[Rfam]
RNA sequence: CCAAGGUGCGGGCGCUUAGCCCGCACCGAGGUGAAACCCGAGCGAGGGUCAUAAGCCCGAGCUUUUACCUAUGAAGAUAUGAGACCAGCAGGGGCAUCCGGGCUGGUACCCGGUAAAUCUGCGGGAUCUUGCAGGCCUGGUUGUGGUGAGAAGACUCCAGGCUUACGUGGUUCUGCCGAUCGAGGCCCCUAACCGAGGGUGACCA
Numbered sequence: 001c002c003a004a005g006g007u008g009c010g011g012g013c014g015c016u017u018a019g020c021c022c023g024c025a026c027c028g029a030g031g032u033g034a035a036a037c038c039c040g041a042g043c044g045a046g047g048g049u050c051a052u053a054a055g056c057c058c059g060a061g062c063u064u065u066u067a068c069c070u071a072u073g074a075a076g077a078u079a080u081g082a083g084a085c086c087a088g089c090a091g092g093g094g095c096a097u098c099c100g101g102g103c104u105g106g107u108a109c110c111c112g113g114u115a116a117a118u119c120u121g122c123g124g125g126a127u128c129u130u131g132c133a134g135g136c137c138u139g140g141u142u143g144u145g146g147u148g149a150g151a152a153g154a155c156u157c158c159a160g161g162c163u164u165a166c167g168u169g170g171u172u173c174u175g176c177c178g179a180u181c182g183a184g185g186c187c188c189c190u191a192a193c194c195g196a197g198g199g200u201g202a203c204c205a
Base pairs, nucleotide, nucleotide: 001031002030005027006026007025008024009023010022011021012020013019040064041063042062043061047057048056049055090190091189092188093187094186095184098113099112100111101110102109117180118179119178121176122175123174125173126172128170129169131166133164134163135162136161137160138159139158140157144154

The record is a 205-nucleotide RNA from Pseudomonas japonica, which matches "sucA-II RNA" in Rfam.
The family's consensus secondary structure is taken from published work.
It scores 136 bits against the family's covariance model.